Description
This 131-nucleotide RNA from Spermophilus dauricus belongs to the Rfam family "Small nucleolar RNA U109". By type it is an H/ACA-box small nucleolar RNA. The family's consensus secondary structure was predicted with WAR. Taxonomically the source falls in Spermophilus (Eukaryota, Bilateria, Sciuromorpha, Sciuridae). The literature on the family includes a 2005 paper in Nucleic Acids Res by Gu et al., "A novel experimental approach for systematic identification of box H/ACA snoRNAs from eukaryotes". A search with the family's covariance model found it, with a score of 131 bits.

RNA sequence: UUGCAUGUGGAAAUGCCUCUCCUCUUUGUGGAGCAGGAGUACAUCUAUUACAUGCUACAUUAAAAAAAGGAGUUCUCAGGGCUGCCAACCUUAAAGUACAGGUUGAGUGGUAGUAUAUUUCUCCUACAUGA
Numbered sequence: 001u002u003g004c005a006u007g008u009g010g011a012a013a014u015g016c017c018u019c020u021c022c023u024c025u026u027u028g029u030g031g032a033g034c035a036g037g038a039g040u041a042c043a044u045c046u047a048u049u050a051c052a053u054g055c056u057a058c059a060u061u062a063a064a065a066a067a068a069g070g071a072g073u074u075c076u077c078a079g080g081g082c083u084g085c086c087a088a089c090c091u092u093a094a095a096g097u098a099c100a101g102g103u104u105g106a107g108u109g110g111u112a113g114u115a116u117a118u119u120u121c122u123c124c125u126a127c128a129u130g131a
Stems, first nucleotide, its partner, number of pairs: 003055006016037003019033004069124004081111002085107001086105006